Shown here is a 180-nucleotide RNA from Ureibacillus massiliensis, a member of the family "Lysine riboswitch aptamer".
RNA sequence: AGUAAGGAUAGAGGCGCAAAGACCAUUAUUACAUAAUAUGAGGAUGAUGAGAUCCUAAGAUUAUUAUGGAAAGGGGAAUUUGCCGAAGCUUUAAGACUCUCACUCAUCUUGAAGCUGGUUCUGACGUUGAAUAAAUGCAGGACUGUCAUAUAGGAAACUAUAUGGAGGGCUAUCUUACGC
Numbered sequence: 001a002g003u004a005a006g007g008a009u010a011g012a013g014g015c016g017c018a019a020a021g022a023c024c025a026u027u028a029u030u031a032c033a034u035a036a037u038a039u040g041a042g043g044a045u046g047a048u049g050a051g052a053u054c055c056u057a058a059g060a061u062u063a064u065u066a067u068g069g070a071a072a073g074g075g076g077a078a079u080u081u082g083c084c085g086a087a088g089c090u091u092u093a094a095g096a097c098u099c100u101c102a103c104u105c106a107u108c109u110u111g112a113a114g115c116u117g118g119u120u121c122u123g124a125c126g127u128u129g130a131a132u133a134a135a136u137g138c139a140g141g142a143c144u145g146u147c148a149u150a151u152a153g154g155a156a157a158c159u160a161u162a163u164g165g166a167g168g169g170c171u172a173u174c175u176u177a178c179g180c
Stems, first nucleotide, its partner, number of pairs: 006175006016083005023076002032068007087116010117144007125137004146165007